[Rfam]
RNA sequence: CUGUGGUGCAUUGUAGUUGCAUUGCAUGAUUCUGAAGCUGAGUGCAAUGUGCCUGCAGUGCAAUACAG
Dot-bracket structure: ((((.(((((((((((..(.(((((((..............))))))).)..)))))))))).)))))